Shown here is an 83-nucleotide sequence from Thalassotalea piscium, a member of the family "c-di-GMP-I riboswitch aptamer". Its family is annotated with cyclic-di-GMP binding in the Gene Ontology. The base pairs follow the family's consensus structure, which is taken from published work. Rfam 15.1 lists 5,092 matches to the family in 1,772 species.
RNA sequence: GCUUGAAAAGGGCAAAUCUAGUGAAAAUUAGAGACGCAAAGUUACCGGCCUAAAGAUUACUCUAUGGCAGCGGAACUACCGAA
Numbered sequence: 001g002c003u004u005g006a007a008a009a010g011g012g013c014a015a016a017u018c019u020a021g022u023g024a025a026a027a028u029u030a031g032a033g034a035c036g037c038a039a040a041g042u043u044a045c046c047g048g049c050c051u052a053a054a055g056a057u058u059a060c061u062c063u064a065u066g067g068c069a070g071c072g073g074a075a076c077u078a079c080c081g082a083a
Stems, first nucleotide, its partner, number of pairs: 012037002017032006040077004045073003048068003055062002